[Rfam]
RNA sequence: CAAGGCCGACUAAGGCGUUGGUGCGGCGCGAACGGGUAACAGCUCCUGCCGCUCAUCAGAACUAAUUCAGCUUUUACCUUGUUCGUUGUUGCCCUUUUUGGUUUU
Numbered sequence: 001c002a003a004g005g006c007c008g009a010c011u012a013a014g015g016c017g018u019u020g021g022u023g024c025g026g027c028g029c030g031a032a033c034g035g036g037u038a039a040c041a042g043c044u045c046c047u048g049c050c051g052c053u054c055a056u057c058a059g060a061a062c063u064a065a066u067u068c069a070g071c072u073u074u075u076a077c078c079u080u081g082u083u084c085g086u087u088g089u090u091g092c093c094c095u096u097u098u099u100g101g102u103u104u105u
Stems, first nucleotide, its partner, number of pairs: 002105008020095002023092005028086007035078004042071002044061001046059003
A member of the RNA family "mir-354 microRNA precursor family" from Caenorhabditis bovis, 105 nucleotides long. Rfam links the family to the GO terms RISC complex and miRNA-mediated post-transcriptional gene silencing. Taxonomically the source falls in Caenorhabditis (Eukaryota, Opisthokonta, Rhabditida, Rhabditoidea).